A member of the RNA family "Eukaryotic large subunit ribosomal RNA" from Drechslerella stenobrocha, 433 nucleotides of a longer RNA. NCBI's taxonomy places the organism under Eukaryota, Fungi, Ascomycota, saccharomyceta, Drechslerella stenobrocha. The match comes from Rfam's covariance-model search (3294 bits). The base pairs follow the family's consensus structure, which is taken from published work.
Nucleotides: 433
Stems, first nucleotide, its partner, number of pairs: 015033006034431004043411004049391002054078006063071002085387003089145002094139002097111002100109003120131002149166005169383004174379005179373001186195003203360006212345004217340007225330003228248006252301005261291006270282004308325007397406002413425004
Number, partner (000 for none) and nucleotide at each position: 001000g002000g003000u004000a005000g006000u007000a008000g009000c010000a011000a012000a013000u014000a015033c016032u017031c018030a019029a020028a021000u022000g023000a024000g025000a026000a027000c028020u029019u030018u031017g032016a033015g034431g035430a036429c037428u038000g039000a040000a041000g042000u043411g044410g045409g046408g047000a048000a049391a050390g051000g052000u053000u054078c055077c056076a057075u058074g059073u060000g061000a062000a063071c064070a065000g066000c067000a068000g069000u070064u071063g072000g073059a074058c075057a076056u077055g078054g079000g080000u081000u082000a083000g084000u085387c086386g087385a088000u089145c090144c091000u092000a093000a094139g095138g096000c097111a098110u099000a100109g101108g102107g103000a104000a105000a106000c107102u108101c109100c110098g111097u112000u113000u114000u115000a116000a117000a118000g119000u120131u121130c122000g123000c124000g125000c126000u127000u128000g129000c130121g131120a132000c133000a134000c135000c136000u137000g138095c139094c140000g141000a142000a143000a144090g145089g146000g147000a148000a149166g150165c151164c152163g153162g154000u155000u156000a157000a158000u159000a160000u161000u162153c163152c164151g165150g166149c167000a168000c169383c170382u171381g172380g173000a174379u175378g176377u177376g178375g179373a180000u181000u182000c183000u184000a185000c186195g187194c188193g189000g190000c191000a192000a193188c194187g195186c196000a197000a198000a199000u200000g201000a202000a203360c204359c205358c206357g207356g208355a209000g210000a211000c212345a213344c214343g215342g216000g217340u218339g219338g220337g221336a222335g223334c224000c225330c226329u227328g228248g229247g230246a231245a232244g233243a234000g235000u236000u237000c238000u239000c240000u241000u242000u243233u244232c245231u246230u247229c248228u249000u250000g251000a252301c253300a254299g255298u256297c257000c258000g259000u260000c261291a262290c263289c264288c265287u266286g267000a268000a269000a270282u271281c272280g273279g274000u275000u276000u277000g278000u279273c280272c281271g282270g283000a284000g285000c286266u287265a288264g289263g290262g291261u292000u293000u294000a295000a296000u297256g298255g299254c300253u301252g302000g303000c304000a305000g306000a307000g308325c309324u310323c311322a312321g313320c314319a315000c316000u317000u318000u319314u320313g321312c322311u323310g324309g325308g326000u327000c328227c329226g330225g331000u332000g333000c334223g335222c336221u337220c338219c339218c340217a341000a342215c343214c344213g345212u346000c347000c348000u349000u350000g351000a352000a353000a354000a355208u356207c357206c358205g359204g360203g361000g362000g363000a364000a365000g366000g367000a368000a369000u370000a371000g372000c373179u374000u375178u376177c377176a378175c379174g380172c381171c382170a383169g384000g385087u386086c387085g388000u389000a390050c391049u392000c393000a394000u395000a396000a397406c398405c399000g400000c401000a402000g403000c404000a405398g406397g407000u408046c409045u410044c411043c412000a413425a414424g415423g416422u417000g418000a419000a420000a421000a422416g423415c424414c425413u426000c427000u428037a429036g430035u431034u432000g433000a